[Rfam]
RNA sequence: UAAAAAUAAAUAGCGCCUGAUCUGUAAAAACAGAUGACGAGGAAAGGGUUUAUCGAAAAAUUCGGCGGAUGGCCCUAGGCACUGCAGUCUAAAGAAGAUGAAAAAAACGAUUUGCAAAGAUCGAACAAAAAUAUAUUCAUGCAGCUGG
Numbered sequence: 001u002a003a004a005a006a007u008a009a010a011u012a013g014c015g016c017c018u019g020a021u022c023u024g025u026a027a028a029a030a031c032a033g034a035u036g037a038c039g040a041g042g043a044a045a046g047g048g049u050u051u052a053u054c055g056a057a058a059a060a061u062u063c064g065g066c067g068g069a070u071g072g073c074c075c076u077a078g079g080c081a082c083u084g085c086a087g088u089c090u091a092a093a094g095a096a097g098a099u100g101a102a103a104a105a106a107a108c109g110a111u112u113u114g115c116a117a118a119g120a121u122c123g124a125a126c127a128a129a130a131a132u133a134u135a136u137u138c139a140u141g142c143a144g145c146u147g148g
Stems, first nucleotide, its partner, number of pairs: 020035006045076005053065004077090004094138003098134003108123006